[Rfam]
RNA sequence: GCCGCGAGACAGCUGCUGGCCCGCCGGGGUCAGAGGAAAGUCCAUGCUCGCACUGUCUGCGAUGACAGUAGUGUUUGUGCCGGGCCAAUCAAUAAGCCCGGGUACGUCCACUGGACGUAACGGCUGCAUCGUUCUCCUAAAGCUUCAGCCAUGGAGAACGGUCUUUAAAAGUGCCACAGAGACGAAGCCGUUCGGGAAACAGAACGGGUGGAACGGGUAAACCCCUCAAGCGAGAAACCCAAAUUUGGUAGGGGAACCGCUGGACCGGAACUGAACGGAAAGGCGGAUGCGCGCUGCGCAUAGAUAAAUAGCUGCCGCCGGCAUCUGCCGGAACAGAACAUGGCUUAUGAAC
Numbered sequence: 001g002c003c004g005c006g007a008g009a010c011a012g013c014u015g016c017u018g019g020c021c022c023g024c025c026g027g028g029g030u031c032a033g034a035g036g037a038a039a040g041u042c043c044a045u046g047c048u049c050g051c052a053c054u055g056u057c058u059g060c061g062a063u064g065a066c067a068g069u070a071g072u073g074u075u076u077g078u079g080c081c082g083g084g085c086c087a088a089u090c091a092a093u094a095a096g097c098c099c100g101g102g103u104a105c106g107u108c109c110a111c112u113g114g115a116c117g118u119a120a121c122g123g124c125u126g127c128a129u130c131g132u133u134c135u136c137c138u139a140a141a142g143c144u145u146c147a148g149c150c151a152u153g154g155a156g157a158a159c160g161g162u163c164u165u166u167a168a169a170a171g172u173g174c175c176a177c178a179g180a181g182a183c184g185a186a187g188c189c190g191u192u193c194g195g196g197a198a199a200c201a202g203a204a205c206g207g208g209u210g211g212a213a214c215g216g217g218u219a220a221a222c223c224c225c226u227c228a229a230g231c232g233a234g235a236a237a238c239c240c241a242a243a244u245u246u247g248g249u250a251g252g253g254g255a256a257c258c259g260c261u262g263g264a265c266c267g268g269a270a271c272u273g274a275a276c277g278g279a280a281a282g283g284c285g286g287a288u289g290c291g292c293g294c295u296g297c298g299c300a301u302a303g304a305u306a307a308a309u310a311g312c313u314g315c316c317g318c319c320g321g322c323a324u325c326u327g328c329c330g331g332a333a334c335a336g337a338a339c340a341u342g343g344c345u346u347a348u349g350a351a352c
Stems, first nucleotide, its partner, number of pairs: 004352001007348001008316001010314005016033006038346003042343005047234005052069006075229003079225001080101006102121001103119006122224002126164001128162001134156004142149002171222002173218003188207006195200001238253003257286005287301006318331005
Shown here is a 352-nucleotide RNA from Faecalibaculum rodentium, a member of the family "Bacterial RNase P class B". Ribonuclease P (RNase P) is a ubiquitous endoribonuclease, found in archaea, bacteria and eukarya as well as chloroplasts and mitochondria. Its best characterised activity is the generation of mature 5'-ends of tRNAs by cleaving the 5'-leader elements of precursor-tRNAs. The family's RNA type in Rfam is ribozyme. Its Rfam clan is "RNaseP clan". Pairs were carried over by alignment from the consensus structure, which is taken from published work. Its family is annotated with ribonuclease P activity, dimeric ribonuclease P complex and tRNA processing in the Gene Ontology.